The family of this 88-nucleotide sequence from Aleadryas rufinucha is "mir-1426 microRNA precursor family".
The base pairs follow the family's consensus structure, which was predicted with RNAalifold.
The organism belongs to Aleadryas, within Eukaryota.
RNA sequence: CAGGGUUGAUCCUCUUUCCUUAACUCAUGCCGCUGUGCCUUUUUAUUUACUUCACAAUUGUGUGAGUUGAGUACAGAGUGUCACUCCA
Numbered sequence: 001c002a003g004g005g006u007u008g009a010u011c012c013u014c015u016u017u018c019c020u021u022a023a024c025u026c027a028u029g030c031c032g033c034u035g036u037g038c039c040u041u042u043u044u045a046u047u048u049a050c051u052u053c054a055c056a057a058u059u060g061u062g063u064g065a066g067u068u069g070a071g072u073a074c075a076g077a078g079u080g081u082c083a084c085u086c087c088a
Stems, first nucleotide, its partner, number of pairs: 004086002007083004012078002019071010034056004
Dot-bracket structure: ...((.((((.((.....((((((((((.....((((...............)))).....)))))))))).....)).)))).))..